[Rfam]
RNA sequence: UGGAAGUGUCCUGUUGGUCUGGUCCGAUUUUUUGUGUGAGAACUCAAAUCAUUCCAGGUCGGAGGGCACUUUCUUCAGUUCGACACCCCACUACCUCCCAGAUUCAUCGGUGGAUCGAG
Numbered sequence: 001u002g003g004a005a006g007u008g009u010c011c012u013g014u015u016g017g018u019c020u021g022g023u024c025c026g027a028u029u030u031u032u033u034g035u036g037u038g039a040g041a042a043c044u045c046a047a048a049u050c051a052u053u054c055c056a057g058g059u060c061g062g063a064g065g066g067c068a069c070u071u072u073c074u075u076c077a078g079u080u081c082g083a084c085a086c087c088c089c090a091c092u093a094c095c096u097c098c099c100a101g102a103u104u105c106a107u108c109g110g111u112g113g114a115u116c117g118a119g
Stems, first nucleotide, its partner, number of pairs: 002073011015061003019057004026050003030046001034043002101116006

A member of the RNA family "Actinobacteria sRNA Ms_IGR-7" from Rhodococcus sp. 1168, 119 nucleotides long. A search with the family's covariance model found it, with a score of 83 bits. The pairing is the family consensus, mapped onto this sequence. Rfam classes the family as a small RNA.